[Rfam]
The record is a 104-nucleotide RNA sequence from Nesterenkonia alkaliphila, which matches "SAM riboswitch aptamer (S box leader)" in Rfam. Taxonomically the source falls in Nesterenkonia (Bacteria, Bacillati, Actinomycetota, Micrococcales). The match comes from Rfam's covariance-model search (52 bits).

Nucleotides: 104
Base pairs, nucleotide, nucleotide: 003102004101005100006099007098008097013043014042015041016040017039021032022031023030026092027091028090029089044084045083046082047081049080050079051078052077053076088096
Number, partner (000 for none) and nucleotide at each position: 001000g002000g003102u004101c005100c006099a007098u008097c009000c010000c011000g012000a013043g014042c015041g016040g017039c018000g019000g020000a021032g022031a023030g024000a025000u026092c027091u028090g029089g030023c031022u032021c033000u034000u035000u036000g037000a038000u039017g040016c041015c042014g043013c044084a045083g046082c047081a048000a049080c050079c051078c052077g053076g054000g055000c056000g057000g058000c059000g060000c061000c062000g063000c064000u065000g066000u067000g068000c069000g070000c071000c072000c073000a074000g075000g076053c077052c078051g079050g080049g081047u082046g083045c084044u085000a086000c087000u088096g089029c090028c091027a092026g093000g094000a095000a096088c097008g098007a099006u100005g101004g102003g103000a104000g